[Rfam]
RNA sequence: UUCAUAGACAACGAUUUGUUUUCGAAGCUUACGAAAUGGCGUUCUCGCCAGGUCUCAGGACCAUAGCUUCGGGGAAAGUCUCCGGCCGUGGCAGCGGAAACGCAGCGGACGAAUUCCUCCGUUUGCACAAUGCCAGUGAAGGAUUGAGCUAGGCUCAUUGGCAAUGCCUGUUGGGCACCUUCUUCCAAUGAUGCUCCUCAGUAGGACGUGUUUCCUGCUCGUGUAAACCCGCUAAUUGUUUGUUCCUUUGAACUUUAUGGACUUCGGUCCUGGACAGUUCUGUGGUGGCGGGCGCUGGGGUUAUACGGUCGCUGGGUUCUUGUAUUAUUGGAAGAUUGGCUCGACUUAAGGGUAUUGUUGGGGGUCUAGCGUUCUGGAGUCUGGCAUUGUUGCUUCCUCUGGGGUCACCUGGAGUUCAGUCAUUCGGCAAUGGGACGGCGUGUCCUAAACGAUAGGUAUAACAAAUGGCCAAUACUGGCUAACCCAAUGGAGCUCACUCUUGUCUAUGA
Numbered sequence: 001u002u003c004a005u006a007g008a009c010a011a012c013g014a015u016u017u018g019u020u021u022u023c024g025a026a027g028c029u030u031a032c033g034a035a036a037u038g039g040c041g042u043u044c045u046c047g048c049c050a051g052g053u054c055u056c057a058g059g060a061c062c063a064u065a066g067c068u069u070c071g072g073g074g075a076a077a078g079u080c081u082c083c084g085g086c087c088g089u090g091g092c093a094g095c096g097g098a099a100a101c102g103c104a105g106c107g108g109a110c111g112a113a114u115u116c117c118u119c120c121g122u123u124u125g126c127a128c129a130a131u132g133c134c135a136g137u138g139a140a141g142g143a144u145u146g147a148g149c150u151a152g153g154c155u156c157a158u159u160g161g162c163a164a165u166g167c168c169u170g171u172u173g174g175g176c177a178c179c180u181u182c183u184u185c186c187a188a189u190g191a192u193g194c195u196c197c198u199c200a201g202u203a204g205g206a207c208g209u210g211u212u213u214c215c216u217g218c219u220c221g222u223g224u225a226a227a228c229c230c231g232c233u234a235a236u237u238g239u240u241u242g243u244u245c246c247u248u249u250g251a252a253c254u255u256u257a258u259g260g261a262c263u264u265c266g267g268u269c270c271u272g273g274a275c276a277g278u279u280c281u282g283u284g285g286u287g288g289c290g291g292g293c294g295c296u297g298g299g300g301u302u303a304u305a306c307g308g309u310c311g312c313u314g315g316g317u318u319c320u321u322g323u324a325u326u327a328u329u330g331g332a333a334g335a336u337u338g339g340c341u342c343g344a345c346u347u348a349a350g351g352g353u354a355u356u357g358u359u360g361g362g363g364g365u366c367u368a369g370c371g372u373u374c375u376g377g378a379g380u381c382u383g384g385c386a387u388u389g390u391u392g393c394u395u396c397c398u399c400u401g402g403g404g405u406c407a408c409c410u411g412g413a414g415u416u417c418a419g420u421c422a423u424u425c426g427g428c429a430a431u432g433g434g435a436c437g438g439c440g441u442g443u444c445c446u447a448a449a450c451g452a453u454a455g456g457u458a459u460a461a462c463a464a465a466u467g468g469c470c471a472a473u474a475c476u477g478g479c480u481a482a483c484c485c486a487a488u489g490g491a492g493c494u495c496a497c498u499c500u501u502g503u504c505u506a507u508g509a
Base pairs, nucleotide, nucleotide: 002509003508004507005506006505007504008503009502010501011500014466015465016464017463018462019461022072023071024070025069026068027067028066039056041054043052044051045050077494078493080492081491082490083489094103095102096101105126106125107124108123109122110121379436380435381434385432386431387430388429389428390427391426392425468479469478470477471476
RNA: RNase MRP
Organism: Candidozyma haemuli